The family of this 92-nucleotide RNA sequence from Pseudoflavonifractor capillosus is "c-di-GMP-I-GGC riboswitch aptamer". A search with the family's covariance model found it, with a score of 65 bits.

[Rfam]
RNA sequence: CGCGACAAAGGCAAACCGGCCGAAAGACCGGGACGCAAAGCCAGGAGGCUAAAGCGGACACAGUGUCCGCCAUGCCGGUCCGGCCGCCGCAG
Numbered sequence: 001c002g003c004g005a006c007a008a009a010g011g012c013a014a015a016c017c018g019g020c021c022g023a024a025a026g027a028c029c030g031g032g033a034c035g036c037a038a039a040g041c042c043a044g045g046a047g048g049c050u051a052a053a054g055c056g057g058a059c060a061c062a063g064u065g066u067c068c069g070c071c072a073u074g075c076c077g078g079u080c081c082g083g084c085c086g087c088c089g090c091a092g
Base pairs, nucleotide, nucleotide: 001092003089004088011036012035016031017030018029019028021026034078040084041083042082044081045080046079047076048075049074